Notes: FMN riboswitch aptamer (RFN element): a 154-nucleotide RNA sequence from Microbacterium laevaniformans. A reference for the family is Vitreschak et al. (2002), "Regulation of riboflavin biosynthesis and transport genes in bacteria by transcriptional and translational attenuation", Nucleic Acids Res. From the family's description: The RFN element is a highly conserved domain that is found frequently in the 5'-untranslated regions of prokaryotic mRNAs that encode for flavin mononucleotide (FMN) biosynthesis and transport proteins. Pairs were carried over by alignment from the consensus structure, which is taken from published work. The source organism's lineage runs through Bacteria, Bacillati, Actinomycetota, Micrococcales and Microbacterium.
RNA sequence: AACGUGCUCCGGGGUCGGUGUGAAUCCGAACCGGCGGUGACAGUCCGCGAGCCCCUCCCAGGAGGGGUUGAUCCGGUGGAAUUCCGGGACCGACGGUGAUGCGUGACGGUUCAACGAGAACCCGAUCGCUAGUCCGGAUGAGAGGCAGCACGGA
Numbered sequence: 001a002a003c004g005u006g007c008u009c010c011g012g013g014g015u016c017g018g019u020g021u022g023a024a025u026c027c028g029a030a031c032c033g034g035c036g037g038u039g040a041c042a043g044u045c046c047g048c049g050a051g052c053c054c055c056u057c058c059c060a061g062g063a064g065g066g067g068u069u070g071a072u073c074c075g076g077u078g079g080a081a082u083u084c085c086g087g088g089a090c091c092g093a094c095g096g097u098g099a100u101g102c103g104u105g106a107c108g109g110u111u112c113a114a115c116g117a118g119a120a121c122c123c124g125a126u127c128g129c130u131a132g133u134c135c136g137g138a139u140g141a142g143a144g145g146c147a148g149c150a151c152g153g154a
Stems, first nucleotide, its partner, number of pairs: 003152006009145002016028003032092002034048004043090002051068003072088005094136003